[Rfam]
RNA sequence: AAAGCCAGUGGAAGGUCGAUGGGUGAUCAAGAAGACCUAUGGCCUAGACAAGUGGCUCACAUUACACUUGGUGAGUGCGCUGGUCUACCAUCUUUCUAAGUGGGAGAGUGGACGUCAUAAUUUGUGGUAGAGGGGUACGCGUUCAUGCGGCCCCUA
Numbered sequence: 001a002a003a004g005c006c007a008g009u010g011g012a013a014g015g016u017c018g019a020u021g022g023g024u025g026a027u028c029a030a031g032a033a034g035a036c037c038u039a040u041g042g043c044c045u046a047g048a049c050a051a052g053u054g055g056c057u058c059a060c061a062u063u064a065c066a067c068u069u070g071g072u073g074a075g076u077g078c079g080c081u082g083g084u085c086u087a088c089c090a091u092c093u094u095u096c097u098a099a100g101u102g103g104g105a106g107a108g109u110g111g112a113c114g115u116c117a118u119a120a121u122u123u124g125u126g127g128u129a130g131a132g133g134g135g136u137a138c139g140c141g142u143u144c145a146u147g148c149g150g151c152c153c154c155u156a
Stems, first nucleotide, its partner, number of pairs: 008116001011113001013045006020039005046086004053079002056075005088111003091107003095103002131155005138149004
The record is a 156-nucleotide RNA sequence from Zea mays, which matches "U1 spliceosomal RNA" in Rfam.
It is annotated as a spliceosomal small nuclear RNA.
From the family's description: U1 is a small nuclear RNA (snRNA) component of the spliceosome (involved in pre-mRNA splicing).
The literature on the family includes a 2001 paper in J Biol Chem by Katsamba et al., "Two functionally distinct steps mediate high affinity binding of U1A protein to U1 hairpin II RNA".